[Rfam]
RNA sequence: UAACCACUGGCGAAAAUCGUGUAUGUUC
Numbered sequence: 001u002a003a004c005c006a007c008u009g010g011c012g013a014a015a016a017u018c019g020u021g022u023a024u025g026u027u028c
Base pairs, nucleotide, nucleotide: 002027003026004025008023010020011019012018013017
Rfam assigns this 28-nucleotide RNA from Mesohalobacter halotolerans to the family "L19-Flavobacteria ribosomal protein leader". The family's RNA type in Rfam is cis-regulatory leader. Pairs were carried over by alignment from the consensus structure, which is taken from published work.